This 93-nucleotide RNA sequence from Lactobacillus acetotolerans belongs to the Rfam family "RNA anti-toxin A".

RNA sequence: UUAUGAUAAAAUACAAGAAGAAGUCCUGUGAAUAACAGAACUUCCCAUGUAGAGCCGUAAAAGACGGUGACUAAACAUUAUAACGACAAAUAA
Numbered sequence: 001u002u003a004u005g006a007u008a009a010a011a012u013a014c015a016a017g018a019a020g021a022a023g024u025c026c027u028g029u030g031a032a033u034a035a036c037a038g039a040a041c042u043u044c045c046c047a048u049g050u051a052g053a054g055c056c057g058u059a060a061a062a063g064a065c066g067g068u069g070a071c072u073a074a075a076c077a078u079u080a081u082a083a084c085g086a087c088a089a090a091u092a093a
Base pairs, nucleotide, nucleotide: 026038027037028036054068055067056066057065058064
A reference for the family is Fozo et al. (2010), "Abundance of type I toxin-antitoxin systems in bacteria: searches for new candidates and discovery of novel families", Nucleic Acids Res. The source organism's lineage runs through Bacteria, Bacillati, Lactobacillales, Lactobacillaceae and Lactobacillus. Rfam links the family to the GO terms negative regulation of translation and mRNA binding.